[Rfam]
Group II catalytic intron D1-D4-4: a 139-nucleotide RNA.
Rfam 15.1 lists 840 matches to the family in 506 species.
Rfam describes the family as follows. Group II introns are found in rRNA, tRNA and mRNA of organelles in fungi, plants and protists, and also in mRNA in bacteria.

Nucleotides: 139
Base pairs, nucleotide, nucleotide: 018041019040020039021038022037048087049086050085051084052083053078054077055076056075057074062069063068094113097111098110099109100108101107116132117131118130
Number, partner (000 for none) and nucleotide at each position: 001000u002000a003000a004000u005000u006000u007000g008000c009000g010000u011000g012000c013000c014000c015000a016000g017000u018041c019040u020039a021038g022037g023000u024000a025000g026000g027000a028000g029000c030000a031000a032000a033000g034000u035000c036000g037022c038021c039020u040019a041018g042000u043000a044000g045000c046000u047000g048087a049086c050085a051084g052083g053078c054077a055076a056075c057074u058000g059000g060000u061000g062069g063068a064000g065000a066000a067000a068063u069062c070000c071000u072000a073000a074057g075056g076055u077054u078053g079000u080000a081000g082000c083052c084051c085050u086049g087048u088000g089000a090000c091000a092000a093000a094113g095000u096000a097111a098110c099109u100108u101107c102000u103000a104000g105000u106000a107101g108100a109099a110098g111097u112000g113094c114000g115000a116132g117131c118130g119000a120000a121000u122000c123000a124000g125000c126000a127000g128000a129000c130118u131117g132116u133000a134000a135000c136000a137000u138000u139000a